[Rfam]
RNA sequence: UUUUAUUUGGGGAGUGUUUGCUGUAUAAUUGGGUUUAAUAAGAUGUUUAGAGGUGCAGUGGGCAUGACUUUGAGUAGAU
Numbered sequence: 001u002u003u004u005a006u007u008u009g010g011g012g013a014g015u016g017u018u019u020g021c022u023g024u025a026u027a028a029u030u031g032g033g034u035u036u037a038a039u040a041a042g043a044u045g046u047u048u049a050g051a052g053g054u055g056c057a058g059u060g061g062g063c064a065u066g067a068c069u070u071u072g073a074g075u076a077g078a079u
Base pairs, nucleotide, nucleotide: 002078003077004076005075006074007073008072009071010070011069012068014065015064016063017062018061019060020059021058022057023056024055025054026053030049031048032047033046034045

The record is a 79-nucleotide sequence from Diceros bicornis, which matches "mir-1902 microRNA precursor family" in Rfam. Pairs were carried over by alignment from the consensus structure, which was predicted with RNAalifold. Rfam 15.1 lists 1,188 matches to the family in 123 species. Rfam links the family to the GO terms miRNA-mediated post-transcriptional gene silencing and RISC complex. It scores 87 bits against the family's covariance model.